[Rfam]
RNA sequence: CUGACAGCCCUGGAGACUGAAGUCCUCUAUUUAUCCACAGAACAGGUAACAGCAAGGGCAGCAGCAGUGUAAGCUUACCCUGAGUUGCCCCACCAAAGUGUGUCAACCCUGACCUAAGGGGACUCACUUCCGGGGGUGAAAAGGUAGUUCAGUCUCAAUGCCCAGUCAAUCCUUUGCCUCU
Numbered sequence: 001c002u003g004a005c006a007g008c009c010c011u012g013g014a015g016a017c018u019g020a021a022g023u024c025c026u027c028u029a030u031u032u033a034u035c036c037a038c039a040g041a042a043c044a045g046g047u048a049a050c051a052g053c054a055a056g057g058g059c060a061g062c063a064g065c066a067g068u069g070u071a072a073g074c075u076u077a078c079c080c081u082g083a084g085u086u087g088c089c090c091c092a093c094c095a096a097a098g099u100g101u102g103u104c105a106a107c108c109c110u111g112a113c114c115u116a117a118g119g120g121g122a123c124u125c126a127c128u129u130c131c132g133g134g135g136g137u138g139a140a141a142a143g144g145u146a147g148u149u150c151a152g153u154c155u156c157a158a159u160g161c162c163c164a165g166u167c168a169a170u171c172c173u174u175u176g177c178c179u180c181u
Stems, first nucleotide, its partner, number of pairs: 002168003007162001011158001013156009024144003028141001030140006038111003048103001052101003064088004114133002118129003

This 181-nucleotide RNA sequence from Chelonoidis abingdonii belongs to the Rfam family "TUC338".
Pairs were carried over by alignment from the consensus structure, which was predicted with WAR.
The match comes from Rfam's covariance-model search (126 bits).
The family's RNA type in Rfam is cis-regulatory element.
On this family, see Braconi et al., Proc Natl Acad Sci U S A 2011: "Expression and functional role of a transcribed noncoding RNA with an ultraconserved element in hepatocellular carcinoma".